[Rfam]
RNA sequence: AAUUCCCUUUUAUGUGUCUUAUGAUGAAGCUUCAUAGGGCAGAUUCUGAGAUGAGAAAUAAAAUUUCUCUCCACUGAUACUCUCUAUAUGCCAUCUGAAGACACUACAUGUU
Numbered sequence: 001a002a003u004u005c006c007c008u009u010u011u012a013u014g015u016g017u018c019u020u021a022u023g024a025u026g027a028a029g030c031u032u033c034a035u036a037g038g039g040c041a042g043a044u045u046c047u048g049a050g051a052u053g054a055g056a057a058a059u060a061a062a063a064u065u066u067c068u069c070u071c072c073a074c075u076g077a078u079a080c081u082c083u084c085u086a087u088a089u090g091c092c093a094u095c096u097g098a099a100g101a102c103a104c105u106a107c108a109u110g111u112u
Stems, first nucleotide, its partner, number of pairs: 011106002014104006029094001033090003037083003042078001045077002048074001050072001053069005
Background
This 112-nucleotide RNA sequence from Nestor notabilis belongs to the Rfam family "Small nucleolar RNA SNORD90". snoRNA HBII-295 belongs to the family of C/D snoRNAs. It is the human orthologue of the mouse MBII-295 and has no identified RNA target. Rfam classes the family as a C/D-box small nucleolar RNA. A search with the family's covariance model found it, with a score of 55 bits. NCBI's taxonomy places the organism under Eukaryota, Bilateria, Craniata, Sarcopterygii, Nestor.